[Rfam]
RNA sequence: GCCCCCGUCAUCGGGGAGUAGCCGCCCGGCACUGCGACCGGGGCCUGCAUCAACAGACUUGUCCGUCAGGGCAUGGUGCAGGCAGUGGCAGGCGCGGGUCGCGCCUGCGGGCCUGGCGAGACCUUUGACCGUGCCGCUC
Numbered sequence: 001g002c003c004c005c006c007g008u009c010a011u012c013g014g015g016g017a018g019u020a021g022c023c024g025c026c027c028g029g030c031a032c033u034g035c036g037a038c039c040g041g042g043g044c045c046u047g048c049a050u051c052a053a054c055a056g057a058c059u060u061g062u063c064c065g066u067c068a069g070g071g072c073a074u075g076g077u078g079c080a081g082g083c084a085g086u087g088g089c090a091g092g093c094g095c096g097g098g099u100c101g102c103g104c105c106u107g108c109g110g111g112c113c114u115g116g117c118g119a120g121a122c123c124u125u126u127g128a129c130c131g132u133g134c135c136g137c138u139c
Stems, first nucleotide, its partner, number of pairs: 026041003043083010060073005084138007
This 139-nucleotide RNA from Pseudothauera rhizosphaerae belongs to the Rfam family "Manganese Mn2+ riboswitch aptamer (yybP-ykoY)". The organism belongs to Pseudothauera, within Bacteria. The family has 29 seed sequences and 1,126 matches in Rfam 15.1.